This 112-nucleotide RNA sequence from Breoghania sp. L-A4 belongs to the Rfam family "TPP riboswitch aptamer (THI element)". The source organism's lineage runs through Bacteria, Pseudomonadota, Alphaproteobacteria, Stappiaceae and Breoghania. The match comes from Rfam's covariance-model search (71 bits). Pairs were carried over by alignment from the consensus structure, which is taken from published work.
[Rfam]
RNA sequence: CCAAGUUCCGAGGGGUGUUCCGUUGAACUGAGAUGGUCGGUCUUCCGAGGCUGCCGAACCCUUCGAACCUGAUCCGGGUCAUACCGGCGAAGGGACGGGAACCUGAGCCACU
Numbered sequence: 001c002c003a004a005g006u007u008c009c010g011a012g013g014g015g016u017g018u019u020c021c022g023u024u025g026a027a028c029u030g031a032g033a034u035g036g037u038c039g040g041u042c043u044u045c046c047g048a049g050g051c052u053g054c055c056g057a058a059c060c061c062u063u064c065g066a067a068c069c070u071g072a073u074c075c076g077g078g079u080c081a082u083a084c085c086g087g088c089g090a091a092g093g094g095a096c097g098g099g100a101a102c103c104u105g106a107g108c109c110a111c112u
Base pairs, nucleotide, nucleotide: 006100007099008098009097010096011062012061013060014059016056017028018027019026020025035055036054037053039051068093069092070091074087075086076085077084